[Rfam]
The family of this 78-nucleotide RNA from Desulfosudis oleivorans is "c-di-GMP-I riboswitch aptamer".

RNA sequence: UCAUGCUAAAGCCAAACUCCGGGCGACCGGAGGACGGAAAGCAACGGGUCUUAAUAUAAAGACAGCCGGGCUGCCAUG
Numbered sequence: 001u002c003a004u005g006c007u008a009a010a011g012c013c014a015a016a017c018u019c020c021g022g023g024c025g026a027c028c029g030g031a032g033g034a035c036g037g038a039a040a041g042c043a044a045c046g047g048g049u050c051u052u053a054a055u056a057u058a059a060a061g062a063c064a065g066c067c068g069g070g071c072u073g074c075c076a077u078g
Base pairs, nucleotide, nucleotide: 012037013036017032018031019030020029021028022027040072041071042070045068046067047066048063049062050061
The sequence is in the family's curated seed alignment. Lineage of the source: Bacteria > Pseudomonadati > Desulfobacteria > Desulfosudaceae > Desulfosudis oleivorans.